[Rfam]
RNA sequence: UUUGAUUGAUUCAGCUUCAUACCAGAAGCGCUUGCAUUGCGGCCCUGUUAGAUUUUAACGAAUCUGCAAAUUCUGCU
Dot-bracket structure: .............[..[[..(.((((((((.......)))]].]....(((((((....)))))))....))))).)
RNA: Mammalian CPEB3 ribozyme